[Rfam]
RNA sequence: UAUUUUCUUCAAAAAUGGUAAUAUCCUACCGGCGGUAAUAGCCCGCAAGCAUUUCAUGCAGAAUUCGGUUUUAUUCCGAAGCCGACAGUAAAGUCUGGACGGGAGAAGAAAAAU
Dot-bracket structure: ..((((((((......((......)).[[((((((.....[[))))..(((.....)))....(((((.......)))))]])).(((....]]))).......))))))))..
RNA: FMN riboswitch aptamer (RFN element)